[Rfam]
RNA sequence: GAUUUCCUUUAGUGCAAAUCCAAUCAUCUAAAUUGGAAAUAAGAAGCAAUUCUCCCAUUGGUAGCAAACGGCUAUUCAUUAAGUGAAGGGGAUACAGU
Number, nucleotide and partner (000 for none) at each position: 001g000002a000003u000004u000005u000006c000007c000008u000009u023010u022011a000012g020013u000014g000015c000016a000017a000018a000019u000020c012021c000022a010023a009024u000025c000026a000027u000028c000029u000030a000031a000032a000033u000034u000035g000036g000037a000038a000039a000040u000041a000042a000043g000044a000045a000046g000047c000048a000049a000050u000051u000052c088053u087054c000055c000056c085057a079058u078059u000060g076061g075062u074063a073064g072065c071066a000067a000068a000069c000070g000071g065072c064073u063074a062075u061076u060077c000078a058079u057080u000081a000082a000083g000084u000085g056086a000087a053088g052089g000090g000091g000092a000093u000094a000095c000096a000097g000098u000
Shown here is a 98-nucleotide RNA sequence from Oryza punctata, a member of the family "Plastid-rps12 3UTR RNA".
Rfam's curators write: Plastid rpl20 is a non-coding RNA (ncRNA) recognised in plastids. It was found in the three prime untranslated region (3UTR) of rps12 gene, its 3UTR location sugest a role in transcript maduration.
The organism belongs to Oryza, within Eukaryota.
It scores 78 bits against the family's covariance model.
The family has 1,299 seed sequences and 1,710 matches in Rfam 15.1.
For this family Rfam cites "Retrograde signaling in plants: A critical review focusing on the GUN pathway and beyond" (Richter et al., Plant Commun, 2023).
By type it is a cis-regulatory element.